Shown here is a 91-nucleotide sequence from Lactobacillus acidophilus, a member of the family "Lacto-usp RNA".
RNA sequence: GAUCAAACUAUAAGACGUGGUGGUUGGCAAAUAACUACCGAAUCGGAAUACUGCCUUGUUGCAGGAUCCAUAUUCGCUGCGAUGCUGACCG
Numbered sequence: 001g002a003u004c005a006a007a008c009u010a011u012a013a014g015a016c017g018u019g020g021u022g023g024u025u026g027g028c029a030a031a032u033a034a035c036u037a038c039c040g041a042a043u044c045g046g047a048a049u050a051c052u053g054c055c056u057u058g059u060u061g062c063a064g065g066a067u068c069c070a071u072a073u074u075c076g077c078u079g080c081g082a083u084g085c086u087g088a089c090c091g
Base pairs, nucleotide, nucleotide: 022090023089024088025087026086027085028084029083039076040075041074042073043072045069046068047067051064052063053062054061
The sequence is in the family's curated seed alignment.